[Rfam]
RNA sequence: AAUGUAUGAUGCCGUUGACUUUUUGUCCAACGUUUGACCAUUCGUCUUAUUCAAAAAAUUUAUGUAAUUAUCAUUUAUUUUAUUGUGACUUGAUUGAUCAUCAAAUGUUCUUUAAGCAUGACAUAAAUAUUUUCAUAUUUGCAAAAAAAAUGAAUAAAACAAAUGGUCAAACGUUGGUUAAAAAAUCAAUGACGUCAUACAUU
Dot-bracket structure: ..........................((((((((((((((((.((.((((.......................................................................................................)))).)).))))))))))))))))..........................
Numbered sequence: 001a002a003u004g005u006a007u008g009a010u011g012c013c014g015u016u017g018a019c020u021u022u023u024u025g026u027c028c029a030a031c032g033u034u035u036g037a038c039c040a041u042u043c044g045u046c047u048u049a050u051u052c053a054a055a056a057a058a059u060u061u062a063u064g065u066a067a068u069u070a071u072c073a074u075u076u077a078u079u080u081u082a083u084u085g086u087g088a089c090u091u092g093a094u095u096g097a098u099c100a101u102c103a104a105a106u107g108u109u110c111u112u113u114a115a116g117c118a119u120g121a122c123a124u125a126a127a128u129a130u131u132u133u134c135a136u137a138u139u140u141g142c143a144a145a146a147a148a149a150a151u152g153a154a155u156a157a158a159a160c161a162a163a164u165g166g167u168c169a170a171a172c173g174u175u176g177g178u179u180a181a182a183a184a185a186u187c188a189a190u191g192a193c194g195u196c197a198u199a200c201a202u203u
Stems, first nucleotide, its partner, number of pairs: 027177016044160002047157004
Shown here is a 203-nucleotide RNA from Oryza glumipatula, a member of the family "MIR812 microRNA precursor family". The organism belongs to Oryza, within Eukaryota. Pairs were carried over by alignment from the consensus structure, which was predicted with RNAalifold.